[Rfam]
Notes
This 123-nucleotide RNA from Manganibacter manganicus belongs to the Rfam family "Alphaproteobacterial ar14". It is annotated as a small RNA. Pairs were carried over by alignment from the consensus structure. Smr14C2 was renamed NfeR1 (Nodule Formation Efficiency RNA) highly expressed in salt stress and during the symbiotic interaction on legume roots. A search with the family's covariance model found it, with a score of 91 bits. The organism belongs to Manganibacter, within Bacteria.

Nucleotides: 123
Stems, first nucleotide, its partner, number of pairs: 007040003011036001014033004045076007053068002087118011
Number, partner (000 for none) and nucleotide at each position: 001000c002000g003000a004000a005000u006000u007040c008039c009038g010000c011036c012000a013000c014033g015032g016031c017030c018000u019000a020000c021000c022000u023000c024000c025000u026000c027000c028000c029000a030017g031016g032015c033014u034000a035000a036011g037000g038009c039008g040007g041000a042000u043000a044000c045076g046075g047074u048073c049072a050071g051070c052000c053068u054067u055000c056000u057000c058000c059000u060000c061000c062000u063000c064000c065000c066000g067054a068053a069000c070051g071050c072049u073048g074047g075046c076045c077000g078000a079000c080000c081000u082000a083000u084000a085000c086000g087118a088117c089116a090115c091114c092113c093112g094111c095110c096109g097108c098000a099000c100000c101000u102000c103000c104000u105000c106000c107000c108097g109096c110095g111094g112093c113092g114091g115090g116089u117088g118087u119000u120000g121000u122000u123000u